Rfam assigns this 244-nucleotide RNA sequence from Scedosporium apiospermum to the family "Small nucleolar RNA snR191". By type it is an H/ACA-box small nucleolar RNA. The match comes from Rfam's covariance-model search (54 bits).
RNA sequence: UGCCCAGUUGUCUUGUCAGGAUACUUUCUCGCACAUUCAGUGCGCUUCAAUGAGAUUUCAUCUGUUACACACUGGGCAGAUUAAAUGUCAAUCUCGCUGCCCUUUGCCCUUGGGUUUUGGGGUCGGUGGACUCCGUUUUGGAGUUUGCCAUGAGAUACGACGUUGUUUCAAAAUGAGUUGAGGCUGCCCCUGAUUUUACAUCUUGGGCUUCGUGGCAGUCUUUUUAGUACUGAUUCAUACAUUU
Numbered sequence: 001u002g003c004c005c006a007g008u009u010g011u012c013u014u015g016u017c018a019g020g021a022u023a024c025u026u027u028c029u030c031g032c033a034c035a036u037u038c039a040g041u042g043c044g045c046u047u048c049a050a051u052g053a054g055a056u057u058u059c060a061u062c063u064g065u066u067a068c069a070c071a072c073u074g075g076g077c078a079g080a081u082u083a084a085a086u087g088u089c090a091a092u093c094u095c096g097c098u099g100c101c102c103u104u105u106g107c108c109c110u111u112g113g114g115u116u117u118u119g120g121g122g123u124c125g126g127u128g129g130a131c132u133c134c135g136u137u138u139u140g141g142a143g144u145u146u147g148c149c150a151u152g153a154g155a156u157a158c159g160a161c162g163u164u165g166u167u168u169c170a171a172a173a174u175g176a177g178u179u180g181a182g183g184c185u186g187c188c189c190c191u192g193a194u195u196u197u198a199c200a201u202c203u204u205g206g207g208c209u210u211c212g213u214g215g216c217a218g219u220c221u222u223u224u225u226a227g228u229a230c231u232g233a234u235u236c237a238u239a240c241a242u243u244u
Base pairs, nucleotide, nucleotide: 003076004075005074006073007072019063020062021061022060023057025055026054027053028052030044031043032042033041034040087161088160089159091156092155093154096127097126098125099124101122102121103120107113108112129145130144131143132142133141134140135139164237165236168233169232170231180223181222182221183220186216187215188214189207190206191205192203